A member of the RNA family "JUMPstart RNA" from Xenorhabdus japonica, 37 nucleotides long. By type it is a cis-regulatory element. The family has 128 seed sequences and 288 matches in Rfam 15.1. It scores 35 bits against the family's covariance model. Lineage of the source: Bacteria > Pseudomonadati > Gammaproteobacteria > Morganellaceae > Xenorhabdus.
RNA sequence: AGGCACUCUAGGAGCUGUAACCUAGUGCGGUAGCUUU
Numbered sequence: 001a002g003g004c005a006c007u008c009u010a011g012g013a014g015c016u017g018u019a020a021c022c023u024a025g026u027g028c029g030g031u032a033g034c035u036u037u
Stems, first nucleotide, its partner, number of pairs: 009024004